[Rfam]
RNA sequence: CCGGGCGCCGUGUUCGGGUCCGGUGGGACAUAGGGGGCGUCGGCUCUCCUUUACCGACGCAGCUCAUGCCCAGAUCGCUUUAGGAGGAUUUGGAAAUGAGAA
Numbered sequence: 001c002c003g004g005g006c007g008c009c010g011u012g013u014u015c016g017g018g019u020c021c022g023g024u025g026g027g028a029c030a031u032a033g034g035g036g037g038c039g040u041c042g043g044c045u046c047u048c049c050u051u052u053a054c055c056g057a058c059g060c061a062g063c064u065c066a067u068g069c070c071c072a073g074a075u076c077g078c079u080u081u082a083g084g085a086g087g088a089u090u091u092g093g094a095a096a097u098g099a100g101a102a
Stems, first nucleotide, its partner, number of pairs: 001023006008017002037060007063100005070093007078086003
A member of the RNA family "Repression of heat shock gene expression (ROSE) element" from Sphingobium sp. SYK-6, 102 nucleotides long. Lineage of the source: Bacteria > Pseudomonadati > Alphaproteobacteria > Sphingomonadales > Sphingobium. The family's consensus secondary structure is taken from published work. The literature on the family includes a 2001 paper in Nucleic Acids Res by Nocker et al., "A mRNA-based thermosensor controls expression of rhizobial heat shock genes". It is annotated as an RNA thermoregulator. It scores 50 bits against the family's covariance model. Rfam describes the family as follows. This family represents a 5' UTR cis-regulatory element found in heat shock mRNAs and is known as the ROSE (repression of heat shock gene expression) element. The ROSE element is a negative regulator of heat shock gene expression. The secondary structure is thought to be regulated by temperature. This regulation blocks access to the ribosome binding site under normal conditions. During heat shock however, the structure changes freeing the ribosome binding site and allowing expression to occur.